RNA sequence: UUUUACACGUCUCCUUAUCACUUCUUUUAGCCAGUUUUUUUCAAUUACUGGACGGAGAACUGAUAAGGGCUCGUGGGAGA
Numbered sequence: 001u002u003u004u005a006c007a008c009g010u011c012u013c014c015u016u017a018u019c020a021c022u023u024c025u026u027u028u029a030g031c032c033a034g035u036u037u038u039u040u041u042c043a044a045u046u047a048c049u050g051g052a053c054g055g056a057g058a059a060c061u062g063a064u065a066a067g068g069g070c071u072c073g074u075g076g077g078a079g080a
Stems, first nucleotide, its partner, number of pairs: 012069009022059006031051002
RNA: mir-184 microRNA precursor family
Organism: Armadillidium nasatum